[Rfam]
Nucleotides: 133
Base pairs, nucleotide, nucleotide: 011118012117013116014115018031019030020029032113033112034111035110036109037108042049043048050098051097052096058074059073060072061071077092078091079090
Number, partner (000 for none) and nucleotide at each position: 001000c002000a003000u004000a005000g006000a007000u008000u009000c010000a011118c012117g013116c014115u015000u016000a017000a018031u019030u020029c021000u022000c023000g024000u025000u026000a027000g028000a029020g030019a031018a032113g033112c034111g035110g036109g037108g038000g039000a040000a041000c042049c043048a044000u045000u046000c047000g048043u049042g050098g051097g052096g053000u054000g055000a056000a057000u058074c059073g060072g061071a062000a063000g064000c065000a066000a067000g068000g069000c070000u071061u072060c073059c074058g075000u076000a077092g078091g079090g080000g081000a082000c083000u084000c085000u086000c087000a088000g089000a090079c091078c092077c093000g094000a095000a096052u097051c098050c099000g100000u101000c102000a103000g104000c105000u106000a107000a108037c109036c110035u111034c112033g113032u114000c115014a116013g117012c118011g119000u120000u121000a122000u123000u124000g125000g126000g127000a128000g129000a130000a131000c132000g133000a
This 133-nucleotide RNA sequence from Paenibacillus lutrae belongs to the Rfam family "c-di-AMP riboswitch aptamer (ydaO/yuaA leader)".
The source organism's lineage runs through Bacteria, Bacillati, Bacilli, Paenibacillaceae and Paenibacillus.
The match comes from Rfam's covariance-model search (98 bits).